RNA: ALIL pseudoknot
RNA sequence: AACUUUCUUCGCGGGGGAACUCGACCCCCGCAACCGAUGAUCGUGGCGUUCAUAGAUCAGAUGCGCGCCAACGGGUUUGCGGUCGAGUCGAUCUGCCGGGUCCUGCGUGGGCAGGGCUGCCAGAUUGCCGCA
Numbered sequence: 001a002a003c004u005u006u007c008u009u010c011g012c013g014g015g016g017g018a019a020c021u022c023g024a025c026c027c028c029c030g031c032a033a034c035c036g037a038u039g040a041u042c043g044u045g046g047c048g049u050u051c052a053u054a055g056a057u058c059a060g061a062u063g064c065g066c067g068c069c070a071a072c073g074g075g076u077u078u079g080c081g082g083u084c085g086a087g088u089c090g091a092u093c094u095g096c097c098g099g100g101u102c103c104u105g106c107g108u109g110g111g112c113a114g115g116g117c118u119g120c121c122a123g124a125u126u127g128c129c130g131c132a
Base pairs, nucleotide, nucleotide: 013029014028015027016026017025078132079131080130081129082128089127090126092124093123094122095121097119098118